[Rfam]
RNA sequence: GCCCUGACUGUAUGUAGGGCAAACUCUCGCACGUUGCGAGGGCUGGAGACGUGGUCAUCUUCGGCAAAUAUUCAUAAGGUGCAGACCUCACCUUACCCCC
Numbered sequence: 001g002c003c004c005u006g007a008c009u010g011u012a013u014g015u016a017g018g019g020c021a022a023a024c025u026c027u028c029g030c031a032c033g034u035u036g037c038g039a040g041g042g043c044u045g046g047a048g049a050c051g052u053g054g055u056c057a058u059c060u061u062c063g064g065c066a067a068a069u070a071u072u073c074a075u076a077a078g079g080u081g082c083a084g085a086c087c088u089c090a091c092c093u094u095a096c097c098c099c100c
Stems, first nucleotide, its partner, number of pairs: 001020006025041006042065008075095007
RNA: engA RNA